[Rfam]
RNA sequence: CGGCAGUCUGCAAGGAUAGUAACAACGAAUGCCGAGGAGUCAGCAGAGGCCGAAGUAGCCGACCGUGGGACGGUCAAGGCGAAGGGC
Numbered sequence: 001c002g003g004c005a006g007u008c009u010g011c012a013a014g015g016a017u018a019g020u021a022a023c024a025a026c027g028a029a030u031g032c033c034g035a036g037g038a039g040u041c042a043g044c045a046g047a048g049g050c051c052g053a054a055g056u057a058g059c060c061g062a063c064c065g066u067g068g069g070a071c072g073g074u075c076a077a078g079g080c081g082a083a084g085g086g087c
Stems, first nucleotide, its partner, number of pairs: 001027002003020002006017004040047002049087003058080003061075003

Shown here is an 87-nucleotide sequence, a member of the family "Group II catalytic intron D1-D4-1". Rfam links the family to the GO term Group II intron splicing. A reference for the family is Bonen and Vogel (2001), "The ins and outs of group II introns", Trends Genet. Pairs were carried over by alignment from the consensus structure. Rfam describes the family as follows. Group II introns are found in rRNA, tRNA and mRNA of organelles in fungi, plants and protists, and also in mRNA in bacteria.